The record is a 136-nucleotide RNA, which matches "Hepatitis C alternative reading frame stem-loop" in Rfam. A reference for the family is Mauger et al. (2015), "Functionally conserved architecture of hepatitis C virus RNA genomes", Proc Natl Acad Sci U S A. Rfam's curators put it in the seed alignment.
RNA sequence: GUCCGUCGCCCACAGAACGUUAAGUUCCCGGGUGGCGGGCAGAUCGUUGGCGGAGUCUACUUGUUGCCGCGCAGGGGCCCUAGAUUGGGUGUGCGCGGCACUAGGAAGAGUUCGGAGCGAUCGCAGCCCAGGGGAA
Numbered sequence: 001g002u003c004c005g006u007c008g009c010c011c012a013c014a015g016a017a018c019g020u021u022a023a024g025u026u027c028c029c030g031g032g033u034g035g036c037g038g039g040c041a042g043a044u045c046g047u048u049g050g051c052g053g054a055g056u057c058u059a060c061u062u063g064u065u066g067c068c069g070c071g072c073a074g075g076g077g078c079c080c081u082a083g084a085u086u087g088g089g090u091g092u093g094c095g096c097g098g099c100a101c102u103a104g105g106a107a108g109a110g111u112u113c114g115g116a117g118c119g120a121u122c123g124c125a126g127c128c129c130a131g132g133g134g135a136a
Stems, first nucleotide, its partner, number of pairs: 003038009015027004042122006048115001050113001052112002056109003060105002063101001068097006077090004